[Rfam]
RNA: Glycine riboswitch aptamer
RNA sequence: CCAACCUCGCUGGGAGAAACCGGCCGCCUUGAGACAGGGCAGCGCCGGUGCCGAAGGAGCAACCGCCCCGGAAACUCUCAGGCAAAAGGACCAGCAAGGUGCC
Numbered sequence: 001c002c003a004a005c006c007u008c009g010c011u012g013g014g015a016g017a018a019a020c021c022g023g024c025c026g027c028c029u030u031g032a033g034a035c036a037g038g039g040c041a042g043c044g045c046c047g048g049u050g051c052c053g054a055a056g057g058a059g060c061a062a063c064c065g066c067c068c069c070g071g072a073a074a075c076u077c078u079c080a081g082g083c084a085a086a087a088g089g090a091c092c093a094g095c096a097a098g099g100u101g102c103c
Stems, first nucleotide, its partner, number of pairs: 006098002009095005020048004050083003053079002057077003063071002